[Rfam]
Alphaproteobacterial sRNA ar35: a 140-nucleotide RNA sequence from Methylopila turkensis. The base pairs follow the family's consensus structure. Taxonomically the source falls in Methylopila (Bacteria, Pseudomonadati, Pseudomonadota, Alphaproteobacteria). For this family Rfam cites "A survey of sRNA families in alpha-proteobacteria" (del Val et al., RNA Biol, 2012). Rfam classes the family as a small RNA.
RNA sequence: CCGCCGUUCGGGCAAGAACGCAGCCGAGAAUCUCGCGGCCGCGUAAUGGAUUGACGUCUCCGGUCCGCGACCACGGAUGUACUGGCGCGGGCCGUCGAGGCGGCAGGGAGGAGGUCGGGUAAAGCCCGACCUUUUUUCGU
Numbered sequence: 001c002c003g004c005c006g007u008u009c010g011g012g013c014a015a016g017a018a019c020g021c022a023g024c025c026g027a028g029a030a031u032c033u034c035g036c037g038g039c040c041g042c043g044u045a046a047u048g049g050a051u052u053g054a055c056g057u058c059u060c061c062g063g064u065c066c067g068c069g070a071c072c073a074c075g076g077a078u079g080u081a082c083u084g085g086c087g088c089g090g091g092c093c094g095u096c097g098a099g100g101c102g103g104c105a106g107g108g109a110g111g112a113g114g115u116c117g118g119g120u121a122a123a124g125c126c127c128g129a130c131c132u133u134u135u136u137u138c139g140u
Stems, first nucleotide, its partner, number of pairs: 001038003053104001055102005062093004068087002071085003106138013120124001